[Rfam]
RNA sequence: CUUAGCAGAAUAUCGACAAAGAACCGCAUGUCUUGUACGAAAGUCGAUAGAACUCACAUCGUGUGAG
Numbered sequence: 001c002u003u004a005g006c007a008g009a010a011u012a013u014c015g016a017c018a019a020a021g022a023a024c025c026g027c028a029u030g031u032c033u034u035g036u037a038c039g040a041a042a043g044u045c046g047a048u049a050g051a052a053c054u055c056a057c058a059u060c061g062u063g064u065g066a067g
Stems, first nucleotide, its partner, number of pairs: 011049007025039002028036002053067005
The record is a 67-nucleotide RNA sequence from Kurthia sibirica, which matches "Bacillaceae-1 RNA" in Rfam. A search with the family's covariance model found it, with a score of 39 bits. The family's RNA type in Rfam is small RNA. Rfam 15.1 lists 5,721 matches to the family in 247 species.